[Rfam]
RNA: Small nucleolar RNA snoR77
RNA sequence: AGGUAGCCUCUUUGCAGAAAAUAUAAUAGCCAAGAAGGUGUUUAACUGCUCGUACAUUAAUUGCCUUUUACUUUUCAGACUUGCUGAGGUUUUUCCUUGAAGCUUGUCUAGUAAGCCUAGGCACAAU
Numbered sequence: 001a002g003g004u005a006g007c008c009u010c011u012u013u014g015c016a017g018a019a020a021a022u023a024u025a026a027u028a029g030c031c032a033a034g035a036a037g038g039u040g041u042u043u044a045a046c047u048g049c050u051c052g053u054a055c056a057u058u059a060a061u062u063g064c065c066u067u068u069u070a071c072u073u074u075u076c077a078g079a080c081u082u083g084c085u086g087a088g089g090u091u092u093u094u095c096c097u098u099g100a101a102g103c104u105u106g107u108c109u110a111g112u113a114a115g116c117c118u119a120g121g122c123a124c125a126a127u
Stems, first nucleotide, its partner, number of pairs: 002042004007038002009035004014030002017027001065121003071115002077109004083103003088095002